[Rfam]
RNA: GP20-b RNA
Nucleotides: 061
Stems, first nucleotide, its partner, number of pairs: 001016004007027005035050004
Number, partner (000 for none) and nucleotide at each position: 001016a002015g003014u004013c005000u006000a007027c008026c009025u010024g011023c012000g013004g014003a015002c016001u017000u018000a019000a020000a021000a022000g023011g024010c025009a026008g027007g028000g029000g030000c031000a032000g033000c034000a035050a036049g037048u038047c039000a040000g041000a042000g043000c044000g045000a046000c047038g048037a049036c050035u051000u052000a053000a054000a055000a056000c057000g058000c059000u060000u061000a